[Rfam]
RNA sequence: UAAUGCACGCCUGAAAUUUUUCUCAAACCUUUGCUCUAGCGUGAAUAGGUGAGCAAAGUUUCAGGUGUAUUGA
Numbered sequence: 001u002a003a004u005g006c007a008c009g010c011c012u013g014a015a016a017u018u019u020u021u022c023u024c025a026a027a028c029c030u031u032u033g034c035u036c037u038a039g040c041g042u043g044a045a046u047a048g049g050u051g052a053g054c055a056a057a058g059u060u061u062c063a064g065g066u067g068u069a070u071u072g073a
Stems, first nucleotide, its partner, number of pairs: 002071003008067007016059005022053004028049003
A member of the RNA family "mir-87 microRNA precursor family" from Rotaria sp. Silwood2, 73 nucleotides long. The family has 44 seed sequences and 420 matches in Rfam 15.1. Lineage of the source: Eukaryota > Bilateria > Bdelloidea > Philodinidae > Rotaria.